Bacterial RNase P class A: a 352-nucleotide RNA from Halobacteriovorax marinus.
The organism belongs to Halobacteriovorax marinus, within Bacteria.

RNA sequence: CGAGAUGGGAAGACUAUCGCUGGUGAAGGAUUCUUCACGAGAGGAAAGUCCGGGCUCCACAUGGCGAUGUAGCGGGUAAUGCCCGUCCACCGUGAGGUGAGGACAAGUGCAACAGAAAGGAUGUACAGGGGUCUGAGAAUGUGAGGGGUAGCUUCGGCCGGCCUCACUUCGAAUCUUUUAGAUACCUGCUGUAGUGAAAACAGGUAAACUCUACGUGGUGCAAGCUUAAAUAGGCCUGUGUUAAGGGCGGCCAGUCCGUGCAGGCGGGUAAAGCGCUUGAGUUAUAGGGCAACUUAUAACCUAGACGAAUGAUAGUUCACGACAAAACCCGGCUUAUCUCCCAUCUCUUUUU
Dot-bracket structure: .(((((((((((((((((.((.((((((....)))))).))....[[[.[[[[[(.((...[[[[.((((((((((.....)))))(((((....)))).)((...((((.............((((((.((((((((.....................................)))))))).))))...))..........))..))))))))))).)...((((......((((((.....((((.]]]]))))..)))))).....))))......((((((((....))))))))..........)))))))..........]]]]]]]].).))))))))).....